[Rfam]
RNA sequence: UACUUAUCUAGAGAGGCUUAGGGACUGGCCCGAUGAAGCCCGGCAACCUGCAUAGCAAGGUGCUAACUCCAGCAAAAUGGUUACAUUUUGGAAGAUAAGGU
Numbered sequence: 001u002a003c004u005u006a007u008c009u010a011g012a013g014a015g016g017c018u019u020a021g022g023g024a025c026u027g028g029c030c031c032g033a034u035g036a037a038g039c040c041c042g043g044c045a046a047c048c049u050g051c052a053u054a055g056c057a058a059g060g061u062g063c064u065a066a067c068u069c070c071a072g073c074a075a076a077a078u079g080g081u082u083a084c085a086u087u088u089u090g091g092a093a094g095a096u097a098a099g100g101u
Stems, first nucleotide, its partner, number of pairs: 003099006013041001015040003021031003025072004042064004047060002049057003068093001073090006

SAM riboswitch aptamer (S box leader): a 101-nucleotide sequence from Bacillus sp. MRMR6. The SAM riboswitch is found upstream of a number of genes which code for proteins involved in methionine or cysteine biosynthesis in Gram-positive bacteria. It scores 82 bits against the family's covariance model.